Rfam assigns this 119-nucleotide sequence from Streptomyces sp. 150FB to the family "Streptomyces-metH RNA".
It scores 89 bits against the family's covariance model.
Pairs were carried over by alignment from the consensus structure, which is taken from published work.
[Rfam]
RNA sequence: GAGUCCGUCCCCUGGUAUGAAACGGCGCUCCGGGGUGCUCCCCGCUACCCUUGCCGGGUGCCCCUUCCUCCAGAAGGCGCAAAGCCGACAGCCGUCGCAGCCCCGGGAGUACGUUUAUG
Number, nucleotide and partner (000 for none) at each position: 001g000002a000003g000004u000005c000006c000007g000008u000009c000010c000011c000012c000013u000014g000015g000016u000017a000018u000019g000020a000021a000022a000023c000024g000025g000026c000027g000028c000029u000030c000031c000032g000033g000034g000035g000036u000037g000038c000039u000040c000041c000042c000043c000044g000045c000046u000047a000048c000049c000050c000051u000052u000053g000054c000055c000056g000057g000058g000059u081060g080061c079062c000063c000064c076065u075066u074067c073068c000069u000070c000071c000072a000073g067074a066075a065076g064077g000078c000079g061080c060081a059082a000083a000084g098085c097086c000087g096088a095089c094090a000091g000092c000093c000094g089095u088096c087097g085098c084099a000100g000101c000102c000103c000104c000105g000106g000107g000108a000109g000110u000111a000112c000113g000114u000115u000116u000117a000118u000119g000